[Rfam]
RNA: Eukaryotic large subunit ribosomal RNA, nucleotides 2622 to 3218
Organism: Meloidogyne incognita
RNA sequence: AAAGAAGACCCUGUUGAGCUUGACUCUAGUCUGACUUUGUGAAGAAUCAUGAGAGGUGUAGCAUAAGUGGGAGUCGCAAGACAACAGUGAAAUACCACUACUUUCAUCGAUUCCUUACUUAAUCGGUAAAACGGGAGUUGUGUCUACGGACCUUCAUUUUUGUUUUAAGACUAGCCACUCGGUGGCUGGUUGACUCGCGCCGAUGACAUUGUCAGGCGGGGAGUUUGACUGGGGCGGUACAUCUGUCAAAUUGUAACGCAGGUGUCCUAAGGCGAGCUCAGAGAGGACGGAAACCUCUCGUUGAGCAAAAAGGCAAAUGCUUACUUGAUCUUGAUUUUCAGUACGAAUACAGACCGCGAAAGCGUGGCUUAUCGAUCCUUUUGAGUUUGUAAAGUUUACAGCAAGAGGUGUCAGAAAAGUUACCACAGGGAUAACUGGCUUGUGGCGGCCAAGCGUCCAUAGCGACGUCGCUUUUUGAUCCUUCGAUGUCGGCUCUUCCUAUCAUUGCGAAGCAGAAUUCGCCAAGCGUUGGAUUGUUCACCCACCAAUAGGGAACGUGAGCUGGGUUUAGACCGUCGUGAGACAGGUUAGUUUUAC
Numbered sequence: 001a002a003a004g005a006a007g008a009c010c011c012u013g014u015u016g017a018g019c020u021u022g023a024c025u026c027u028a029g030u031c032u033g034a035c036u037u038u039g040u041g042a043a044g045a046a047u048c049a050u051g052a053g054a055g056g057u058g059u060a061g062c063a064u065a066a067g068u069g070g071g072a073g074u075c076g077c078a079a080g081a082c083a084a085c086a087g088u089g090a091a092a093u094a095c096c097a098c099u100a101c102u103u104u105c106a107u108c109g110a111u112u113c114c115u116u117a118c119u120u121a122a123u124c125g126g127u128a129a130a131a132c133g134g135g136a137g138u139u140g141u142g143u144c145u146a147c148g149g150a151c152c153u154u155c156a157u158u159u160u161u162g163u164u165u166u167a168a169g170a171c172u173a174g175c176c177a178c179u180c181g182g183u184g185g186c187u188g189g190u191u192g193a194c195u196c197g198c199g200c201c202g203a204u205g206a207c208a209u210u211g212u213c214a215g216g217c218g219g220g221g222a223g224u225u226u227g228a229c230u231g232g233g234g235c236g237g238u239a240c241a242u243c244u245g246u247c248a249a250a251u252u253g254u255a256a257c258g259c260a261g262g263u264g265u266c267c268u269a270a271g272g273c274g275a276g277c278u279c280a281g282a283g284a285g286g287a288c289g290g291a292a293a294c295c296u297c298u299c300g301u302u303g304a305g306c307a308a309a310a311a312g313g314c315a316a317a318u319g320c321u322u323a324c325u326u327g328a329u330c331u332u333g334a335u336u337u338u339c340a341g342u343a344c345g346a347a348u349a350c351a352g353a354c355c356g357c358g359a360a361a362g363c364g365u366g367g368c369u370u371a372u373c374g375a376u377c378c379u380u381u382u383g384a385g386u387u388u389g390u391a392a393a394g395u396u397u398a399c400a401g402c403a404a405g406a407g408g409u410g411u412c413a414g415a416a417a418a419g420u421u422a423c424c425a426c427a428g429g430g431a432u433a434a435c436u437g438g439c440u441u442g443u444g445g446c447g448g449c450c451a452a453g454c455g456u457c458c459a460u461a462g463c464g465a466c467g468u469c470g471c472u473u474u475u476u477g478a479u480c481c482u483u484c485g486a487u488g489u490c491g492g493c494u495c496u497u498c499c500u501a502u503c504a505u506u507g508c509g510a511a512g513c514a515g516a517a518u519u520c521g522c523c524a525a526g527c528g529u530u531g532g533a534u535u536g537u538u539c540a541c542c543c544a545c546c547a548a549u550a551g552g553g554a555a556c557g558u559g560a561g562c563u564g565g566g567u568u569u570a571g572a573c574c575g576u577c578g579u580g581a582g583a584c585a586g587g588u589u590a591g592u593u594u595u596a597c
Stems, first nucleotide, its partner, number of pairs: 002595002010429004015425002017421005023224004030216006039118004044113005049107007066099005073082002122204005132197004140152001143149002169191008227240001228238003241263006266367002272324001274322004278304002281299006305314002329353003334348004355364003378407006387401004438479001440477001442476001444472006453463002490565001491563004495557001496554005503528001507522005530544003534540001571589004575584003
Dot-bracket structure: .((......((((.(((((((.((((...((((((...((((.((((((((((((..........(((((..((......))............))))).))))))).))))).))))...(((((.....((((....(..((...))..)................((((((((.......))))))))..))))..)))))......))))))....))))..((((.....))).)((((((...........))))))..((....(.((((((.((((((.......))))))...))((......))....)))).)....(((..((((.......))))..))).(((....))).))..........((((((...((((.......)))))))))).........)))))..))))))........(.(.(.((((((...((.......))...))))))...)).)..........(((((((((((..(...(((((......))))).....).(((.(.....).))).....)))))..)..)))).).....(((((((....))).))))....))..